Annotation
Rfam assigns this 154-nucleotide RNA sequence from Kerstersia gyiorum to the family "FMN riboswitch aptamer (RFN element)". It scores 109 bits against the family's covariance model. NCBI's taxonomy places the organism under Bacteria, Pseudomonadota, Burkholderiales, Alcaligenaceae, Kerstersia.
RNA sequence: AAGCGUUUUCAGGGCGGGGUGAAACUCCCCACCGGCGGUAGGCGUGCCAAUAGACACGCGAGCCCGCGAGCGCCCGGCAGCCUUGUUGCCGGGGUCAGCAGAUCCGGUUCGAUGCCGGAGCCGACGGUCAUAGUCCGGAUGAAAGAAAGCGCGC
Numbered sequence: 001a002a003g004c005g006u007u008u009u010c011a012g013g014g015c016g017g018g019g020u021g022a023a024a025c026u027c028c029c030c031a032c033c034g035g036c037g038g039u040a041g042g043c044g045u046g047c048c049a050a051u052a053g054a055c056a057c058g059c060g061a062g063c064c065c066g067c068g069a070g071c072g073c074c075c076g077g078c079a080g081c082c083u084u085g086u087u088g089c090c091g092g093g094g095u096c097a098g099c100a101g102a103u104c105c106g107g108u109u110c111g112a113u114g115c116c117g118g119a120g121c122c123g124a125c126g127g128u129c130a131u132a133g134u135c136c137g138g139a140u141g142a143a144a145g146a147a148a149g150c151g152c153g154c
Base pairs, nucleotide, nucleotide: 003152004151005150006149007148008147009146010145017029018028019027031134032133033123034122035067036066037065038064062121063120070099071098103119104118105117106116107115125137126136127135